[Rfam]
RNA sequence: UAUAAAUCAGUGGCAGUGCCCACUAUGUAUA
Numbered sequence: 001u002a003u004a005a006a007u008c009a010g011u012g013g014c015a016g017u018g019c020c021c022a023c024u025a026u027g028u029a030u031a
Stems, first nucleotide, its partner, number of pairs: 001031004006026002009024005014018001
Shown here is a 31-nucleotide RNA from Gouania willdenowi, a member of the family "Iron response element II". A search with the family's covariance model found it, with a score of 30 bits. Pairs were carried over by alignment from the consensus structure, which is taken from published work. Rfam's curators write: IRE, TFRC, SLC40A1, SDHB, SLC11A2, CDC42BPA, ACO2, ALAS2_H.SAPIENS, CDC14A, EPAS1, ALAS2, qoxD, Hao1, NDUFS1, transferrin, Aconitate. Gene Ontology term of the family: response to iron ion. Taxonomically the source falls in Gouania (Eukaryota, Chordata, Euteleostomi, Osteoglossocephalai). On this family, see Kohler et al., J Biol Chem 1999: "Molecular cloning of mouse glycolate oxidase. High evolutionary conservation and presence of an iron-responsive element-like sequence in the mRNA". The family's RNA type in Rfam is cis-regulatory element. The family has 30 seed sequences and 5,197 matches in Rfam 15.1.